Annotation: This 68-nucleotide RNA sequence from Cervus hanglu belongs to the Rfam family "Selenocysteine insertion sequence 1". The incorporation of selenocysteine into a protein sequence is directed by an in-frame UGA codon (usually a stop codon) within the coding region of the mRNA. Selenoprotein mRNAs contain a conserved secondary structure in the 3' UTR that is required for the distinction of UGA stop from UGA selenocysteine. The selenocysteine insertion sequence (SECIS) is around 60 nt in length and adopts a hairpin structure which is sufficiently well-defined and conserved to act as a computational screen for selenoprotein genes.
RNA sequence: GACGCUUCAUGACAGGAAGGACUGAAAUGUCUCUUGGACGCCUGGUCCUUCCCUGAUGUUCUUCCGGC
Numbered sequence: 001g002a003c004g005c006u007u008c009a010u011g012a013c014a015g016g017a018a019g020g021a022c023u024g025a026a027a028u029g030u031c032u033c034u035u036g037g038a039c040g041c042c043u044g045g046u047c048c049u050u051c052c053c054u055g056a057u058g059u060u061c062u063u064c065c066g067g068c
Base pairs, nucleotide, nucleotide: 004068005067015052016051017050018049019048020047021046022045023044029039030038031037
A reference for the family is Walczak et al. (1996), "A novel RNA structural motif in the selenocysteine insertion element of eukaryotic selenoprotein mRNAs", RNA. By type it is a cis-regulatory element.